[Rfam]
RNA sequence: UCGGCACUCUGGAAAGCGUCGCCAUCAUCGGCGGCCACCGAAGGGGUAAGCCCGCGCACCUUUGCAUGAAGGUGGGGGCCAGUCUCUCAGGUUUCCCGACAGAGGGGGCAUG
Numbered sequence: 001u002c003g004g005c006a007c008u009c010u011g012g013a014a015a016g017c018g019u020c021g022c023c024a025u026c027a028u029c030g031g032c033g034g035c036c037a038c039c040g041a042a043g044g045g046g047u048a049a050g051c052c053c054g055c056g057c058a059c060c061u062u063u064g065c066a067u068g069a070a071g072g073u074g075g076g077g078g079c080c081a082g083u084c085u086c087u088c089a090g091g092u093u094u095c096c097c098g099a100c101a102g103a104g105g106g107g108g109c110a111u112g
Stems, first nucleotide, its partner, number of pairs: 005106001007104005018035004037092003040088002044086003050079004
This 112-nucleotide RNA from Qipengyuania soli belongs to the Rfam family "Glycine riboswitch aptamer". About the family: This family represents the bacterial glycine riboswitch. The organism belongs to Qipengyuania, within Bacteria.